[Rfam]
RNA sequence: AUUGGAUCGAUGAUUGAUUAGUUAAAAUACUGCGUUAUCUUUCUGCAAAUCUCCUAUAAGGAUUUGAAGACAAAUCAUGAAAAACCUGAGAUCCAAU
Dot-bracket structure: (((((((...................................................................................)))))))
Small nucleolar RNA snoR27: a 97-nucleotide RNA sequence from Arabidopsis thaliana. The organism belongs to Arabidopsis, within Eukaryota. Clan: snR68 clan. The base pairs follow the family's consensus structure, which was predicted with WAR. The literature on the family includes a 2001 paper in RNA by Brown et al., "Multiple snoRNA gene clusters from Arabidopsis". Its family is annotated with nucleolus and RNA processing in the Gene Ontology.